[Rfam]
RNA sequence: CCACUACUUUAACAUCGGUGUACUUUCUGUGUCUUUAAAAAGGGUAAGUGCUCCAAUGUUUUAGUAUUGG
Numbered sequence: 001c002c003a004c005u006a007c008u009u010u011a012a013c014a015u016c017g018g019u020g021u022a023c024u025u026u027c028u029g030u031g032u033c034u035u036u037a038a039a040a041a042g043g044g045u046a047a048g049u050g051c052u053c054c055a056a057u058g059u060u061u062u063a064g065u066a067u068u069g070g
Stems, first nucleotide, its partner, number of pairs: 001070003005066004011060005017054002020051006027044002
Rfam assigns this 70-nucleotide RNA sequence from Xenopus laevis to the family "mir-302 microRNA precursor family". Taxonomically the source falls in Xenopus (Eukaryota, Sarcopterygii, Dipnotetrapodomorpha, Pipidae). On this family, see Mineno et al., Nucleic Acids Res 2006: "The expression profile of microRNAs in mouse embryos". Rfam 15.1 lists 2,090 matches to the family in 516 species.